[Rfam]
RNA sequence: CUGGUGAGGGCAGUAGGCCUUCACCGUGAUCUACAGAAUGCUGUCAUAUUGAGUCUGAGAUCAUUGUGAAAGCUAUUUGCCUUCUACCA
Numbered sequence: 001c002u003g004g005u006g007a008g009g010g011c012a013g014u015a016g017g018c019c020u021u022c023a024c025c026g027u028g029a030u031c032u033a034c035a036g037a038a039u040g041c042u043g044u045c046a047u048a049u050u051g052a053g054u055c056u057g058a059g060a061u062c063a064u065u066g067u068g069a070a071a072g073c074u075a076u077u078u079g080c081c082u083u084c085u086a087c088c089a
Stems, first nucleotide, its partner, number of pairs: 009081004016074003020070005027063006035056003038049002
Background:
A member of the RNA family "mir-81 microRNA precursor family" from Onchocerca flexuosa, 89 nucleotides long. Rfam 15.1 lists 68 matches to the family in 54 species. The base pairs follow the family's consensus structure, which was predicted with RNAalifold. Taxonomically the source falls in Onchocerca (Eukaryota, Metazoa, Spirurina, Filarioidea). Rfam links the family to the GO terms miRNA-mediated post-transcriptional gene silencing and RISC complex. On this family, see Lau et al., Science 2001: "An abundant class of tiny RNAs with probable regulatory roles in Caenorhabditis elegans".